Notes: The record is a 71-nucleotide sequence from Alligator mississippiensis, which matches "Mammalian CPEB3 ribozyme" in Rfam.
RNA sequence: CAAGUUUGAGGCCAUAGCAGAAGUGCUCAUGGUAUGGCCUGUCAGAUUCCAAGGAAUCCAUGGAUUCUGCU
Numbered sequence: 001c002a003a004g005u006u007u008g009a010g011g012c013c014a015u016a017g018c019a020g021a022a023g024u025g026c027u028c029a030u031g032g033u034a035u036g037g038c039c040u041g042u043c044a045g046a047u048u049c050c051a052a053g054g055a056a057u058c059c060a061u062g063g064a065u066u067c068u069g070c071u
Stems, first nucleotide, its partner, number of pairs: 010039004016071007023035003045058005